[Rfam]
RNA sequence: CCGCCACGACAGGGGCGUCCGACCGCGGGCUGAGAAGCACCCUUAGAACCUGACCCAGAUCAUGCUGGCGGAGGGAGUCGCUCGCCGCCACCC
Numbered sequence: 001c002c003g004c005c006a007c008g009a010c011a012g013g014g015g016c017g018u019c020c021g022a023c024c025g026c027g028g029g030c031u032g033a034g035a036a037g038c039a040c041c042c043u044u045a046g047a048a049c050c051u052g053a054c055c056c057a058g059a060u061c062a063u064g065c066u067g068g069c070g071g072a073g074g075g076a077g078u079c080g081c082u083c084g085c086c087g088c089c090a091c092c093c
Stems, first nucleotide, its partner, number of pairs: 007080004011043004016037001017030005049074003055068004
The family of this 93-nucleotide sequence from Gemmobacter lanyuensis is "TPP riboswitch aptamer (THI element)". Pairs were carried over by alignment from the consensus structure, which is taken from published work. Gene Ontology term of the family: thiamine pyrophosphate binding.